The record is a 171-nucleotide RNA sequence from Clostridium collagenovorans, which matches "Lysine riboswitch aptamer" in Rfam. The match comes from Rfam's covariance-model search (113 bits). The source organism's lineage runs through Bacteria, Bacillati, Bacillota, Eubacteriales and Clostridium collagenovorans. About the family: Riboswitches are metabolite binding domains within certain messenger RNAs that serve as precision sensors for their corresponding targets. Allosteric rearrangement of mRNA structure is mediated by ligand binding, and this results in modulation of gene expression. This family includes riboswitches that sense lysine in a number of genes involved in lysine metabolism, including lysC.

[Rfam]
RNA sequence: ACCUAGGGUAGAGGUGCUGUAAUUAAGAGUAUCUAUUAUGAGUUGGCUAAACUGUGAGUAAUAGAGAAAGGAAUUAUGGCCGAAGAGUAAAAAGUUAGCAAGGUUUUACUCUGGCUAUAUGUAUAAGAUAUGUAUGGCUGUCACUUAAGUAAGUGGAGAGCUACAGGGUCA
Numbered sequence: 001a002c003c004u005a006g007g008g009u010a011g012a013g014g015u016g017c018u019g020u021a022a023u024u025a026a027g028a029g030u031a032u033c034u035a036u037u038a039u040g041a042g043u044u045g046g047c048u049a050a051a052c053u054g055u056g057a058g059u060a061a062u063a064g065a066g067a068a069a070g071g072a073a074u075u076a077u078g079g080c081c082g083a084a085g086a087g088u089a090a091a092a093a094g095u096u097a098g099c100a101a102g103g104u105u106u107u108a109c110u111c112u113g114g115c116u117a118u119a120u121g122u123a124u125a126a127g128a129u130a131u132g133u134a135u136g137g138c139u140g141u142c143a144c145u146u147a148a149g150u151a152a153g154u155g156g157a158g159a160g161c162u163a164c165a166g167g168g169u170c171a
Stems, first nucleotide, its partner, number of pairs: 008164004016080009032065008084112009095101001113139011141156006